[Rfam]
RNA: MIR480 microRNA precursor family
RNA sequence: UAAUUUAUCUAGGGUAGAUCCUCAUCUAGCUAUGAUAAACCUGCACUUAACUACUUAGAAUCAUCUUUUAUCGCAAGUCCAACUACAUCAUUCUCCCUAGGUUGGAGGGAAUUCAUCCUCAAAUUUUGU
Numbered sequence: 001u002a003a004u005u006u007a008u009c010u011a012g013g014g015u016a017g018a019u020c021c022u023c024a025u026c027u028a029g030c031u032a033u034g035a036u037a038a039a040c041c042u043g044c045a046c047u048u049a050a051c052u053a054c055u056u057a058g059a060a061u062c063a064u065c066u067u068u069u070a071u072c073g074c075a076a077g078u079c080c081a082a083c084u085a086c087a088u089c090a091u092u093c094u095c096c097c098u099a100g101g102u103u104g105g106a107g108g109g110a111a112u113u114c115a116u117c118c119u120c121a122a123a124u125u126u127u128g129u
Base pairs, nucleotide, nucleotide: 007124008122012118014116015115018112019111023108025106027104028103029102030101031100